[Rfam]
RNA: Small nucleolar RNA SNORD16
RNA sequence: UGCUGUGAUGUUAUAAUUUGCGUCCUAUCUGGUAUUCAGGGACGGUUGCCUGCUGUCCGUAAACUGUUGCCAUUGAACUGACGACUCCUCCAAAUUGAGCA
Numbered sequence: 001u002g003c004u005g006u007g008a009u010g011u012u013a014u015a016a017u018u019u020g021c022g023u024c025c026u027a028u029c030u031g032g033u034a035u036u037c038a039g040g041g042a043c044g045g046u047u048g049c050c051u052g053c054u055g056u057c058c059g060u061a062a063a064c065u066g067u068u069g070c071c072a073u074u075g076a077a078c079u080g081a082c083g084a085c086u087c088c089u090c091c092a093a094a095u096u097g098a099g100c101a
Base pairs, nucleotide, nucleotide: 001101002100003099021083022082023081024080030072031071032070033069034068039064041057042056043055044054045053